[Rfam]
RNA sequence: UAGCUUCAAAUCCGGCCCGGGAUACCCUAUAUGUUGAGGCGUCGGGUAACCGACUAUGGCGAUAAACGAAGUUCGGAAUAGACGUUACGGACCCGGGGGCGGUACCCGGCGCCUCCACCAUGUACCGAUCGGCUGCCAGGCUGGUCGGUAGAUGCUGGGGGCGAAACAGGAUCGACGUGCGUAGUAAAGGGAUGCUCUUUCGCCCGGCAUGAUACCGCCGUUAUCGGGUCAAAACCACAAGUGCCAACGACAACGAAAUGGCGCUCGCUGCCUAAUUAGUUAGGCAAGCGCGGUACGGGGGGCACCGGGCAACAGAAGCCCCCCACU
Numbered sequence: 001u002a003g004c005u006u007c008a009a010a011u012c013c014g015g016c017c018c019g020g021g022a023u024a025c026c027c028u029a030u031a032u033g034u035u036g037a038g039g040c041g042u043c044g045g046g047u048a049a050c051c052g053a054c055u056a057u058g059g060c061g062a063u064a065a066a067c068g069a070a071g072u073u074c075g076g077a078a079u080a081g082a083c084g085u086u087a088c089g090g091a092c093c094c095g096g097g098g099g100c101g102g103u104a105c106c107c108g109g110c111g112c113c114u115c116c117a118c119c120a121u122g123u124a125c126c127g128a129u130c131g132g133c134u135g136c137c138a139g140g141c142u143g144g145u146c147g148g149u150a151g152a153u154g155c156u157g158g159g160g161g162c163g164a165a166a167c168a169g170g171a172u173c174g175a176c177g178u179g180c181g182u183a184g185u186a187a188a189g190g191g192a193u194g195c196u197c198u199u200u201c202g203c204c205c206g207g208c209a210u211g212a213u214a215c216c217g218c219c220g221u222u223a224u225c226g227g228g229u230c231a232a233a234a235c236c237a238c239a240a241g242u243g244c245c246a247a248c249g250a251c252a253a254c255g256a257a258a259u260g261g262c263g264c265u266c267g268c269u270g271c272c273u274a275a276u277u278a279g280u281u282a283g284g285c286a287a288g289c290g291c292g293g294u295a296c297g298g299g300g301g302g303c304a305c306c307g308g309g310c311a312a313c314a315g316a317a318g319c320c321c322c323c324c325a326c327u
Base pairs, nucleotide, nucleotide: 041054042053043052044051045050058204059203060202061201062200068197069196071193072192073191074190083181084180085179087178088177089176093109094108095107096106097105110163111162112161113160114159115158116157205220206219207218208217210231211230212229215227216226291307292306293305294304297324298323299322300321301320302319
The family of this 327-nucleotide RNA from Oleomonas cavernae is "Alphaproteobacteria transfer-messenger RNA". Rfam links the family to the GO term RNA catabolic process. The source organism's lineage runs through Bacteria, Pseudomonadota, Alphaproteobacteria, Acetobacteraceae and Oleomonas.